Rfam assigns this 72-nucleotide RNA from Oryzias latipes to the family "mir-124 microRNA precursor family". It is one of the family's seed sequences. The base pairs follow the family's consensus structure, which was predicted with PFOLD. Rfam 15.1 lists 2,215 matches to the family in 905 species. Rfam links the family to the GO terms RISC complex and miRNA-mediated post-transcriptional gene silencing.
RNA sequence: CACUCCUCGUGUUCACAGCGGACUUUAAUUGAUUAAGCGCACAAUUAAGGCACGCGGUGAAUGCCAAGAGAG
Numbered sequence: 001c002a003c004u005c006c007u008c009g010u011g012u013u014c015a016c017a018g019c020g021g022a023c024u025u026u027a028a029u030u031g032a033u034u035a036a037g038c039g040c041a042c043a044a045u046u047a048a049g050g051c052a053c054g055c056g057g058u059g060a061a062u063g064c065c066a067a068g069a070g071a072g
Base pairs, nucleotide, nucleotide: 003070004069005068009064010063011062012061013060014059015058016057018055019054020053023050024049025048026047027046028045029044030043